A member of the RNA family "Glycine riboswitch aptamer" from Bacillus sp. MUM 116, 79 nucleotides long. Pairs were carried over by alignment from the consensus structure. A search with the family's covariance model found it, with a score of 46 bits.
[Rfam]
RNA sequence: CUCUGGAGAGUGCUUCAGGUAAAUGAAGCCACCAAAGGGGAAAGCCAUUACCGGUAAACUUUCAGGUGCAAGGACAGAG
Numbered sequence: 001c002u003c004u005g006g007a008g009a010g011u012g013c014u015u016c017a018g019g020u021a022a023a024u025g026a027a028g029c030c031a032c033c034a035a036a037g038g039g040g041a042a043a044g045c046c047a048u049u050a051c052c053g054g055u056a057a058a059c060u061u062u063c064a065g066g067u068g069c070a071a072g073g074a075c076a077g078a079g
Stems, first nucleotide, its partner, number of pairs: 001079005012029004031067003035062001038061003045053001